[Rfam]
RNA: Bacterial small signal recognition particle RNA
Organism: Corynebacterium halotolerans
RNA sequence: GGCAGGACCCCGUGCGGCGUCCAUCCCGUGAACUCCCCCAGGGCAGGAAUGCAGCAAGGGUCAACGGGCUCUGGCGGGUGCGCGGGGUCCCCUUAUU
Numbered sequence: 001g002g003c004a005g006g007a008c009c010c011c012g013u014g015c016g017g018c019g020u021c022c023a024u025c026c027c028g029u030g031a032a033c034u035c036c037c038c039c040a041g042g043g044c045a046g047g048a049a050u051g052c053a054g055c056a057a058g059g060g061u062c063a064a065c066g067g068g069c070u071c072u073g074g075c076g077g078g079u080g081c082g083c084g085g086g087g088u089c090c091c092c093u094u095a096u097u
Stems, first nucleotide, its partner, number of pairs: 005090010015078001018076004025068005035060003043052003